[Rfam]
RNA: SAM (S-adenosyl methionine) riboswitch aptamer
RNA sequence: CUUCACGAGAUGUGGCCGGCCUCCGCGCACCGCGGCGGCAAUGCUCCGACACGGCACACACCAACCCCAGACUCACGGGUGGUUCGGAUGACGAAGCGGCCCGCGGCCAGCCGGUCCGGGCAAGAGUGGCCC
Numbered sequence: 001c002u003u004c005a006c007g008a009g010a011u012g013u014g015g016c017c018g019g020c021c022u023c024c025g026c027g028c029a030c031c032g033c034g035g036c037g038g039c040a041a042u043g044c045u046c047c048g049a050c051a052c053g054g055c056a057c058a059c060a061c062c063a064a065c066c067c068c069a070g071a072c073u074c075a076c077g078g079g080u081g082g083u084u085c086g087g088a089u090g091a092c093g094a095a096g097c098g099g100c101c102c103g104c105g106g107c108c109a110g111c112c113g114g115u116c117c118g119g120g121c122a123a124g125a126g127u128g129g130c131c132c
Stems, first nucleotide, its partner, number of pairs: 001096004009059001011058004016053001060083003065079003099121005105116004